[Rfam]
RNA sequence: GUCGAAAAAGGCAAACCGGGGGCAACCCCGGGACGCAAAGCCACGGGUCCUGUUCGCAACCCACAGGAUAGCCGGGUCGCCGAAA
Numbered sequence: 001g002u003c004g005a006a007a008a009a010g011g012c013a014a015a016c017c018g019g020g021g022g023c024a025a026c027c028c029c030g031g032g033a034c035g036c037a038a039a040g041c042c043a044c045g046g047g048u049c050c051u052g053u054u055c056g057c058a059a060c061c062c063a064c065a066g067g068a069u070a071g072c073c074g075g076g077u078c079g080c081c082g083a084a085a
Base pairs, nucleotide, nucleotide: 003082004081011036012035016031017030018029019028020027021026034071040077041076042075044074045073046072047069048068049067050066051065052064053063
Shown here is an 85-nucleotide RNA sequence from bacterium SCGC AG-212-C10, a member of the family "c-di-GMP-I-GGC riboswitch aptamer". The match comes from Rfam's covariance-model search (72 bits).